RNA sequence: GCACUGAAAGUGAGAGUUGGAGGAAAGCAAACCGAUUGACCAUCGGAUUCGAUGGGUAAACAUGAUUGCCGGUCGGUUUGUUUUCCUCCAAUAUCUCAUCUUCAGUCG
Numbered sequence: 001g002c003a004c005u006g007a008a009a010g011u012g013a014g015a016g017u018u019g020g021a022g023g024a025a026a027g028c029a030a031a032c033c034g035a036u037u038g039a040c041c042a043u044c045g046g047a048u049u050c051g052a053u054g055g056g057u058a059a060a061c062a063u064g065a066u067u068g069c070c071g072g073u074c075g076g077u078u079u080g081u082u083u084u085c086c087u088c089c090a091a092u093a094u095c096u097c098a099u100c101u102u103c104a105g106u107c108g
Stems, first nucleotide, its partner, number of pairs: 004105005011098004016092006023085008032076007
Shown here is a 108-nucleotide RNA sequence from Miscanthus lutarioriparius, a member of the family "MIR2275 microRNA precursor family".
The source organism's lineage runs through Eukaryota, Streptophytina, Tracheophyta, Petrosaviidae and Miscanthus.